[Rfam]
RNA sequence: GAGGUUGGGUAAUCGCUGUACUCCACUUGAGAGUAUAGAGGAAAGUCCAUGCUCGCACGAUCUGAGAUGAUCGUAGUGUUCGUGCCUAGUCAAAAAAUAAGCUAGGGUAGCUCGGCAUGGCGUCCGGGCUAACGGCGAGAGAAGCGCCUAAGUCCAUUUGGAUAUGGUGUGACCUCUCUGAAAAGUGCCACAGUGACGGAGUUCCCAAGGAAACACGGGAAGUGGAACGCGGUAAACCCCUCGAGCGAGAAACUCAAAUUUGGUAGAGGAACUCUCCAGAAGGAAAUGAACUGAAGGAGGGACAGGCGAUUAGCCUGUAGAUAGAUGAUUACCACCAAAAGUACGAGAAGUCUUGCUUCGUUAUUCAGUACAUUGGAACAGAACAUGGCUUACAGAC
Numbered sequence: 001g002a003g004g005u006u007g008g009g010u011a012a013u014c015g016c017u018g019u020a021c022u023c024c025a026c027u028u029g030a031g032a033g034u035a036u037a038g039a040g041g042a043a044a045g046u047c048c049a050u051g052c053u054c055g056c057a058c059g060a061u062c063u064g065a066g067a068u069g070a071u072c073g074u075a076g077u078g079u080u081c082g083u084g085c086c087u088a089g090u091c092a093a094a095a096a097a098u099a100a101g102c103u104a105g106g107g108u109a110g111c112u113c114g115g116c117a118u119g120g121c122g123u124c125c126g127g128g129c130u131a132a133c134g135g136c137g138a139g140a141g142a143a144g145c146g147c148c149u150a151a152g153u154c155c156a157u158u159u160g161g162a163u164a165u166g167g168u169g170u171g172a173c174c175u176c177u178c179u180g181a182a183a184a185g186u187g188c189c190a191c192a193g194u195g196a197c198g199g200a201g202u203u204c205c206c207a208a209g210g211a212a213a214c215a216c217g218g219g220a221a222g223u224g225g226a227a228c229g230c231g232g233u234a235a236a237c238c239c240c241u242c243g244a245g246c247g248a249g250a251a252a253c254u255c256a257a258a259u260u261u262g263g264u265a266g267a268g269g270a271a272c273u274c275u276c277c278a279g280a281a282g283g284a285a286a287u288g289a290a291c292u293g294a295a296g297g298a299g300g301g302a303c304a305g306g307c308g309a310u311u312a313g314c315c316u317g318u319a320g321a322u323a324g325a326u327g328a329u330u331a332c333c334a335c336c337a338a339a340a341g342u343a344c345g346a347g348a349a350g351u352c353u354u355g356c357u358u359c360g361u362u363a364u365u366c367a368g369u370a371c372a373u374u375g376g377a378a379c380a381g382a383a384c385a386u387g388g389c390u391u392a393c394a395g396a397c
Stems, first nucleotide, its partner, number of pairs: 004397003007393001008333007016038006043391003047388005052249005057074006080244003084240001085106006107133001108131008134239002137178004145169004152163003185237002187233003202221005209214001253268003272301006302318006336376001338374002341371004
The family of this 397-nucleotide RNA from Pullulanibacillus pueri is "Bacterial RNase P class B". It is annotated as a ribozyme. The organism belongs to Pullulanibacillus, within Bacteria. A reference for the family is Frank and Pace (1998), "Ribonuclease P: unity and diversity in a tRNA processing ribozyme", Annu Rev Biochem.